[Rfam]
RNA: THF (Tetrahydrofolate) riboswitch aptamer
RNA sequence: UACAGGGUAGGUUUUAAUGCGUCAAGUGUUGGGGAAACGGAAUGUGAUCCCCAAACGAAGGUUUAACCGCGAUAUUAUUACCACAUUCACUGUU
Numbered sequence: 001u002a003c004a005g006g007g008u009a010g011g012u013u014u015u016a017a018u019g020c021g022u023c024a025a026g027u028g029u030u031g032g033g034g035a036a037a038c039g040g041a042a043u044g045u046g047a048u049c050c051c052c053a054a055a056c057g058a059a060g061g062u063u064u065a066a067c068c069g070c071g072a073u074a075u076u077a078u079u080a081c082c083a084c085a086u087u088c089a090c091u092g093u094u
Stems, first nucleotide, its partner, number of pairs: 002093004010082003015077005020071003026056002029054007040088005060068003